[Rfam]
RNA sequence: AGUUGCUCAUUCAACUUUUUAUGUCGGUCCACAAUAAUGGGUGGGAACAUACCACAUAAGCCAGGAAUGACGCCAGAGUAAGGUGCCUACCGUCCAACAUCAUGAUACUCGUCUUCGGACCUUAUCAAACUCAGGGCGACACGUGGAGUGAGGCACCACCUU
Number, nucleotide and partner (000 for none) at each position: 001a000002g000003u000004u000005g073006c072007u070008c069009a068010u067011u066012c065013a000014a000015c000016u000017u000018u000019u059020u058021a057022u056023g055024u054025c000026g053027g052028u051029c000030c000031a000032c000033a000034a000035u000036a000037a000038u000039g000040g000041g000042u000043g000044g000045g000046a000047a000048c000049a000050u000051a028052c027053c026054a024055c023056a022057u021058a020059a019060g000061c000062c000063a000064g000065g012066a011067a010068u009069g008070a007071c000072g006073c005074c000075a000076g000077a000078g000079u000080a000081a000082g157083g156084u155085g154086c153087c152088u151089a000090c000091c138092g137093u136094c135095c134096a000097a000098c000099a000100u000101c000102a000103u127104g126105a125106u124107a123108c000109u000110c000111g000112u000113c000114u000115u000116c000117g000118g000119a000120c000121c000122u000123u107124a106125u105126c104127a103128a000129a000130c000131u000132c000133a000134g095135g094136g093137c092138g091139a000140c150141a149142c148143g000144u000145g000146g000147a000148g142149u141150g140151a088152g087153g086154c085155a084156c083157c082158a000159c000160c000161u000162u000